[Rfam]
RNA sequence: AUUGAAUAUAGAGGUUGCGGUGCAUCAGAGUACGAAUUGGAGCAGGUAUGCUAUGAAAAUUCUGAAAGGUAAUCAUCGCCGAAUAAACUACUAGACAUAGGAAGUUUAUGGGGAUAGUGAGAACAUCACUAUCACUCGAUCCACUUGGAUUGGUGCUAUUAAGACU
Numbered sequence: 001a002u003u004g005a006a007u008a009u010a011g012a013g014g015u016u017g018c019g020g021u022g023c024a025u026c027a028g029a030g031u032a033c034g035a036a037u038u039g040g041a042g043c044a045g046g047u048a049u050g051c052u053a054u055g056a057a058a059a060u061u062c063u064g065a066a067a068g069g070u071a072a073u074c075a076u077c078g079c080c081g082a083a084u085a086a087a088c089u090a091c092u093a094g095a096c097a098u099a100g101g102a103a104g105u106u107u108a109u110g111g112g113g114a115u116a117g118u119g120a121g122a123a124c125a126u127c128a129c130u131a132u133c134a135c136u137c138g139a140u141c142c143a144c145u146u147g148g149a150u151u152g153g154u155g156c157u158a159u160u161a162a163g164a165c166u
Stems, first nucleotide, its partner, number of pairs: 008159004017079006025071001034062005083109007091101002110136002113133008138151005
RNA: Lysine riboswitch aptamer
Organism: Erysipelothrix sp. HDW6A